[Rfam]
RNA sequence: UCAACUUGCAGCUCGCACGUCAGCAGCUGGCGGUGUUCCGCUCGCUGCUGGGCAUUUCCUGGAUGUGGUUCGUCGGCGCAGUGUUCCUGGGCAACUUCCCGGUCUUCGCGAAGAACGUGCUG
Numbered sequence: 001u002c003a004a005c006u007u008g009c010a011g012c013u014c015g016c017a018c019g020u021c022a023g024c025a026g027c028u029g030g031c032g033g034u035g036u037u038c039c040g041c042u043c044g045c046u047g048c049u050g051g052g053c054a055u056u057u058c059c060u061g062g063a064u065g066u067g068g069u070u071c072g073u074c075g076g077c078g079c080a081g082u083g084u085u086c087c088u089g090g091g092c093a094a095c096u097u098c099c100c101g102g103u104c105u106u107c108g109c110g111a112a113g114a115a116c117g118u119g120c121u122g
Stems, first nucleotide, its partner, number of pairs: 010049003014044002018040002022037004027032001051121005057115001059113002063105001065103001067099002072095001075092001077089002081086001